[Rfam]
RNA: Glycine riboswitch aptamer
RNA sequence: AGACCCUGUGCGGGAGAGUCCCCCAAAAGCCGUUCACCGGCUUCGGAGGGGGCGCCGAAGGAGCAAAUCCUCCCCGGAAUCUCUCAGGCACACGUACCGCACGGACGAG
Number, nucleotide and partner (000 for none) at each position: 001a000002g000003a000004c000005c000006c104007u103008g102009u101010g100011c099012g098013g097014g000015a000016g000017a000018g000019u000020c052021c051022c050023c049024c000025a000026a000027a000028a000029g000030c000031c000032g000033u000034u000035c000036a000037c000038c000039g000040g000041c000042u000043u000044c000045g000046g000047a000048g000049g023050g022051g021052g020053c000054g089055c088056c087057g085058a084059a000060g000061g083062a082063g081064c000065a000066a000067a000068u076069c000070c000071u000072c000073c000074c000075c000076g068077g000078a000079a000080u000081c063082u062083c061084u058085c057086a000087g056088g055089c054090a000091c000092a000093c000094g000095u000096a000097c013098c012099g011100c010101a009102c008103g007104g006105a000106c000107g000108a000109g000